[Rfam]
The family of this 128-nucleotide sequence from Erinaceus europaeus is "Small nucleolar RNA SNORA1".
It scores 105 bits against the family's covariance model.
Pairs were carried over by alignment from the consensus structure, which was predicted with PFOLD.
Rfam links the family to the GO terms RNA processing and nucleolus.
It is annotated as an H/ACA-box small nucleolar RNA.
Rfam 15.1 lists 1,282 matches to the family in 515 species.

RNA sequence: AGCCCCAUUCUAGAUGAAAAUGGGCACUGUUGCUUUUGGUGUUCAGAAACAGAUGUGGCUAUAUUGAUACAGGUUAAGCUUUCACCAUAGUACCUUACUGUAGUGGUGACAAUGAGGCUGCAACAUGU
Numbered sequence: 001a002g003c004c005c006c007a008u009u010c011u012a013g014a015u016g017a018a019a020a021u022g023g024g025c026a027c028u029g030u031u032g033c034u035u036u037u038g039g040u041g042u043u044c045a046g047a048a049a050c051a052g053a054u055g056u057g058g059c060u061a062u063a064u065u066g067a068u069a070c071a072g073g074u075u076a077a078g079c080u081u082u083c084a085c086c087a088u089a090g091u092a093c094c095u096u097a098c099u100g101u102a103g104u105g106g107u108g109a110c111a112a113u114g115a116g117g118c119u120g121c122a123a124c125a126u127g128u
Stems, first nucleotide, its partner, number of pairs: 002059003006055003021045007070120003083108006
Notes
ACA1 is a member of the H/ACA class of snoRNA that guide the sites of modification of uridines to pseudouridines.